A member of the RNA family "sroB RNA" from Enterobacillus tribolii, 79 nucleotides long.
The family's consensus secondary structure was predicted with LocARNA.
The source organism's lineage runs through Bacteria, Pseudomonadati, Pseudomonadota, Enterobacterales and Enterobacillus.
It scores 65 bits against the family's covariance model.
[Rfam]
RNA sequence: CGAUUUAUCGUACUGUAGCAAUAACGAUAAUCAAUGAAUUCCUCUUUGACUGACCAAUAGCGAUAUUGGUCAUUUUUUU
Numbered sequence: 001c002g003a004u005u006u007a008u009c010g011u012a013c014u015g016u017a018g019c020a021a022u023a024a025c026g027a028u029a030a031u032c033a034a035u036g037a038a039u040u041c042c043u044c045u046u047u048g049a050c051u052g053a054c055c056a057a058u059a060g061c062g063a064u065a066u067u068g069g070u071c072a073u074u075u076u077u078u079u
Stems, first nucleotide, its partner, number of pairs: 005018004026032002051072009